RNA: narK RNA
Nucleotides: 071
Stems, first nucleotide, its partner, number of pairs: 030049007
Number, partner (000 for none) and nucleotide at each position: 001000g002000g003000c004000c005000c006000a007000c008000u009000c010000c011000u012000u013000g014000c015000u016000u017000u018000a019000u020000c021000a022000a023000c024000c025000a026000c027000a028000c029000a030049g031048g032047u033046a034045g035044c036043c037000a038000a039000c040000g041000g042000c043036g044035g045034u046033u047032g048031c049030c050000c051000c052000c053000c054000u055000c056000a057000c058000g059000a060000c061000a062000a063000a064000g065000a066000c067000g068000u069000c070000g071000c